[Rfam]
RNA sequence: UGUCUCCUCCAACACCUCCUAGGUUUGGAUUUAGCCCGCAACCGCAAGGUGAGCGGGCUUUCUUUU
Numbered sequence: 001u002g003u004c005u006c007c008u009c010c011a012a013c014a015c016c017u018c019c020u021a022g023g024u025u026u027g028g029a030u031u032u033a034g035c036c037c038g039c040a041a042c043c044g045c046a047a048g049g050u051g052a053g054c055g056g057g058c059u060u061u062c063u064u065u066u
Base pairs, nucleotide, nucleotide: 008029009028010027011026012025013023033059034058035057036056037055038054039053
RNA: Betaproteobacteria toxic small RNA